[Rfam]
The family of this 123-nucleotide RNA sequence is "Aggregatibacter sRNA 54".
The literature on the family includes a 2017 paper in DNA Res by Oogai et al., "Small RNA repertoires and their intraspecies variation in Aggregatibacter actinomycetemcomitans".
By type it is a small RNA.
The base pairs follow the family's consensus structure, which was predicted with RNAfold.
RNA sequence: GUGCAAUAUUGCGCGCGAUUUUUUAAAAAUCGCAUAUCGCAUUUAAAUCGCGUUUUUUAAGCGCGAUUAAAAUGCGAUUUGAAUUAAAUCGCGCGAUAUUAAUUCAUCGCAUCGCGCGAUGAU
Dot-bracket structure: (((((....))))).............(.(((.((...(..(((.........................)))..).)).)))..)..((((((((((.............))))))))))...